[Rfam]
RNA sequence: GGCUGUUAAACAGCCGAAGCCGGCUGUAAAACAGCCGAAAACAGCCGGCUGUUCGGCUGUUUAACAGCCGACUGUCCGGCUGUUAAACAGCCGGCUGUUCGGCUGUUUAACAGCCUAACAGCCGGCCGUUAAACAGCCGGCUGUUAGGCUGUUAAACAGCCU
Numbered sequence: 001g002g003c004u005g006u007u008a009a010a011c012a013g014c015c016g017a018a019g020c021c022g023g024c025u026g027u028a029a030a031a032c033a034g035c036c037g038a039a040a041a042c043a044g045c046c047g048g049c050u051g052u053u054c055g056g057c058u059g060u061u062u063a064a065c066a067g068c069c070g071a072c073u074g075u076c077c078g079g080c081u082g083u084u085a086a087a088c089a090g091c092c093g094g095c096u097g098u099u100c101g102g103c104u105g106u107u108u109a110a111c112a113g114c115c116u117a118a119c120a121g122c123c124g125g126c127c128g129u130u131a132a133a134c135a136g137c138c139g140g141c142u143g144u145u146a147g148g149c150u151g152u153u154a155a156a157c158a159g160c161c162u
Base pairs, nucleotide, nucleotide: 001036002035003034004033005032006031007030011026012025013024014023015022016021046078047077048076050074051073053071054070055069056068057067058066080136081135082134083133084132085130087129091125092124093123094122095121096117097116146162147161148160149159150158151157152156